[Rfam]
RNA: Mammalian CPEB3 ribozyme
Organism: Moschus moschiferus
RNA sequence: AAAGGAUAACAAGGGGCCAGAGCAGAAGCAGUCACGUCAUGGCCCCUGUCAGAUUCUGGUGAAUCUGCGAAUUCUGCU
Numbered sequence: 001a002a003a004g005g006a007u008a009a010c011a012a013g014g015g016g017c018c019a020g021a022g023c024a025g026a027a028g029c030a031g032u033c034a035c036g037u038c039a040u041g042g043c044c045c046c047u048g049u050c051a052g053a054u055u056c057u058g059g060u061g062a063a064u065c066u067g068c069g070a071a072u073u074c075u076g077c078u
Stems, first nucleotide, its partner, number of pairs: 013046006021078007028040001050067007